RNA sequence: CUUUAUAAGAUACAUUCUUGAUGUAUAUGCCGGAGAAUAAGGCUCUGGCGUUUCUACCAGGUUACCGUAAAUGACUUGACUACAUGAGGAUGACACAGCGAA
Number, nucleotide and partner (000 for none) at each position: 001c000002u000003u000004u000005a000006u000007a000008a000009g000010a000011u000012a000013c000014a000015u000016u000017c000018u088019u087020g000021a085022u084023g083024u082025a081026u000027a000028u000029g049030c048031c047032g046033g045034a044035g043036a000037a000038u000039a000040a000041g000042g000043c035044u034045c033046u032047g031048g030049c029050g000051u000052u000053u000054c000055u000056a000057c000058c078059a077060g076061g075062u074063u073064a072065c000066c000067g000068u000069a000070a000071a000072u064073g063074a062075c061076u060077u059078g058079a000080c000081u025082a024083c023084a022085u021086g000087a019088g018089g000090a000091u000092g000093a000094c000095a000096c000097a000098g000099c000100g000101a000102a000

A member of the RNA family "Purine riboswitch aptamer" from Paenibacillus sp. 7541, 102 nucleotides long. Pairs were carried over by alignment from the consensus structure, which is taken from published work. The match comes from Rfam's covariance-model search (78 bits).